RNA sequence: UCCUUGGAGUGUAAGACCAGACCGAAAUUAGCUAAUUGCGAAAUCGAUACACUAUGAAGAGGAAA
Numbered sequence: 001u002c003c004u005u006g007g008a009g010u011g012u013a014a015g016a017c018c019a020g021a022c023c024g025a026a027a028u029u030a031g032c033u034a035a036u037u038g039c040g041a042a043a044u045c046g047a048u049a050c051a052c053u054a055u056g057a058a059g060a061g062g063a064a065a
Base pairs, nucleotide, nucleotide: 001063002062003061004060005059009052010051011050012049013048023046024045025044031039032038
Shown here is a 65-nucleotide RNA sequence from Clostridium kluyveri, a member of the family "RAGATH-18 RNA". It scores 45 bits against the family's covariance model. The source organism's lineage runs through Bacteria, Bacillati, Eubacteriales, Clostridium and Clostridium kluyveri. Pairs were carried over by alignment from the consensus structure, which is taken from published work.